[Rfam]
RNA: Vault RNA
RNA sequence: GGACUGGCUUUAGCUUAGCAGUUCCUUCAAGUUGAGCUCUCAGCUUGCUAACUACUCUUGCUCUGCAAGGGUGGUUCGAGACCCACAGGUGCUCUCCAGCCCUUUA
Numbered sequence: 001g002g003a004c005u006g007g008c009u010u011u012a013g014c015u016u017a018g019c020a021g022u023u024c025c026u027u028c029a030a031g032u033u034g035a036g037c038u039c040u041c042a043g044c045u046u047g048c049u050a051a052c053u054a055c056u057c058u059u060g061c062u063c064u065g066c067a068a069g070g071g072u073g074g075u076u077c078g079a080g081a082c083c084c085a086c087a088g089g090u091g092c093u094c095u096c097c098a099g100c101c102c103u104u105u106a
Stems, first nucleotide, its partner, number of pairs: 002101001004099004013090004018086001021083001026080003030076004